[Rfam]
RNA: TPP riboswitch aptamer (THI element)
Organism: Stappia sp. ES.058
RNA sequence: UUGAUUUCGUUGGGGUGCCCGAACGGGCUGAGAGACGCGAAGAUGCGUCAACCCACUGAACCUGAUCCGGGUCGUGCCGGCGGAGGGAACGAAUGAUGCGCCGCA
Numbered sequence: 001u002u003g004a005u006u007u008c009g010u011u012g013g014g015g016u017g018c019c020c021g022a023a024c025g026g027g028c029u030g031a032g033a034g035a036c037g038c039g040a041a042g043a044u045g046c047g048u049c050a051a052c053c054c055a056c057u058g059a060a061c062c063u064g065a066u067c068c069g070g071g072u073c074g075u076g077c078c079g080g081c082g083g084a085g086g087g088a089a090c091g092a093a094u095g096a097u098g099c100g101c102c103g104c105a
Base pairs, nucleotide, nucleotide: 006093007092008091009090010089011055012054013053014052017028018027019026020025035048036047037046038045039044061086062085063084067080068079069078070077
Dot-bracket structure: .....(((((((((..((((....))))......(((((....)))))...)))).....(((...((((......))))...)))..)))))............